[Rfam]
RNA sequence: AAAUUCAAGUUAGCAGCCUAACUUAAUUAGGCUGACGGCUGGUGAUUUUUUAAUCACCAGCCU
Numbered sequence: 001a002a003a004u005u006c007a008a009g010u011u012a013g014c015a016g017c018c019u020a021a022c023u024u025a026a027u028u029a030g031g032c033u034g035a036c037g038g039c040u041g042g043u044g045a046u047u048u049u050u051u052a053a054u055c056a057c058c059a060g061c062c063u
Stems, first nucleotide, its partner, number of pairs: 014034005037062010
The family of this 63-nucleotide RNA from Providencia heimbachae is "Pseudomonas sRNA P26".
About the family: This small RNA (sRNA) was computationally identified in the genome of the opportunistic pathogen Pseudomonas aeruginosa and its expression verified by northern blot analysis. P26 is conserved across many Gammaproteobacteria species and appears to be consistently located between the DNA directed RNA polymerase (beta subunit) and 50S ribosomal protein L7/L12 genes.
The family's consensus secondary structure was predicted with RNAalifold.
The family's RNA type in Rfam is non-coding RNA gene.
On this family, see Livny et al., Nucleic Acids Res 2006: "Identification of 17 Pseudomonas aeruginosa sRNAs and prediction of sRNA-encoding genes in 10 diverse pathogens using the bioinformatic tool sRNAPredict2".